This 87-nucleotide sequence from Nyctereutes procyonoides belongs to the Rfam family "Small nucleolar RNA SNORD35". About the family: U35 is a C/D box snoRNA located in intron 6 of ribosomal protein L13A and intron 3 of ribosomal protein S11 in humans and at homologous positions in mouse and chicken ribosomal protein genes. U35 guides the methylation of 2'-O-ribose sites in 28S rRNA. Clan: SNORD35 clan.
RNA sequence: GGCAAAUGAUGGCUCUUUCUCACGAUGGUCUGCGGAUGCCACAGUGGGCAGUGCCGAUAAUGCCAAUGGCUAAGCUGAUGCCAGGAG
Numbered sequence: 001g002g003c004a005a006a007u008g009a010u011g012g013c014u015c016u017u018u019c020u021c022a023c024g025a026u027g028g029u030c031u032g033c034g035g036a037u038g039c040c041a042c043a044g045u046g047g048g049c050a051g052u053g054c055c056g057a058u059a060a061u062g063c064c065a066a067u068g069g070c071u072a073a074g075c076u077g078a079u080g081c082c083a084g085g086a087g
Base pairs, nucleotide, nucleotide: 001082002081003080004079
Rfam classes the family as a C/D-box small nucleolar RNA. A search with the family's covariance model found it, with a score of 86 bits. Rfam links the family to the GO terms RNA processing and nucleolus.